[Rfam]
RNA sequence: UUAAAACUUCAAGGCAGGGUGUAAGUCCCUACCGGCGGUAAAGCCCGCAAGCCGAAAGGUAUGAUCUGGUGAGAUUCCAGAGCCGACAGUAUAGUCUGGAUGAGAGAAGGAUUAA
Number, nucleotide and partner (000 for none) at each position: 001u000002u000003a113004a112005a000006a000007c109008u108009u107010c106011a000012a000013g000014g000015c000016a000017g029018g028019g027020u000021g000022u000023a000024a000025g000026u000027c019028c018029c017030u000031a095032c094033c085034g084035g048036c047037g046038g045039u000040a000041a000042a000043g083044c082045c038046c037047g036048c035049a000050a000051g000052c000053c059054g000055a000056a000057a000058g000059g053060u000061a000062u000063g000064a000065u081066c080067u079068g078069g077070u000071g000072a000073g000074a000075u000076u000077c069078c068079a067080g066081a065082g044083c043084c034085g033086a000087c098088a097089g096090u000091a000092u000093a000094g032095u031096c089097u088098g087099g000100a000101u000102g000103a000104g000105a000106g010107a009108a008109g007110g000111a000112u004113u003114a000115a000
The record is a 115-nucleotide RNA sequence from Eubacterium uniforme, which matches "FMN riboswitch aptamer (RFN element)" in Rfam. The base pairs follow the family's consensus structure, which is taken from published work. A search with the family's covariance model found it, with a score of 107 bits.